[Rfam]
RNA: proV RNA
RNA sequence: CGUCGCUGCCGCUCUUGACCAGGGAGGCAGACUGGGGCCCUCCGCUCCGGACCGAAGAACAGAUAAGUGCUGGCAACCGCAACAGGGCGCCAGACCAACAAGAAAUUUCGGAUGUACGCGCAUCUCGGAUGAGAUGUGAACACCC
Dot-bracket structure: .....(((((.((((.....)))).))))).(((((((.....)))))))....................................................................((((((((....)))))))).......